[Rfam]
RNA sequence: GGUCUCUCAGCUCUGAUCAGUUGCACGUUUUGGAGUUGUGUGAUUGUCUUUUACAAGAGAGACACAGUAAAUGAACUUUGUAUGCACGGCAGGUUGUCCUCCAAGUGGUCUACCUGUUCCUGUUUUUAAGCUCAACAUAU
Numbered sequence: 001g002g003u004c005u006c007u008c009a010g011c012u013c014u015g016a017u018c019a020g021u022u023g024c025a026c027g028u029u030u031u032g033g034a035g036u037u038g039u040g041u042g043a044u045u046g047u048c049u050u051u052u053a054c055a056a057g058a059g060a061g062a063c064a065c066a067g068u069a070a071a072u073g074a075a076c077u078u079u080g081u082a083u084g085c086a087c088g089g090c091a092g093g094u095u096g097u098c099c100u101c102c103a104a105g106u107g108g109u110c111u112a113c114c115u116g117u118u119c120c121u122g123u124u125u126u127u128a129a130g131c132u133c134a135a136c137a138u139a140u
Stems, first nucleotide, its partner, number of pairs: 003066001005064001007062002011059004019045008076130003080126001082121001084119001091115003096110001098108002
RNA: Small nucleolar RNA SNORA64/SNORA10 family
Organism: Aquarana catesbeiana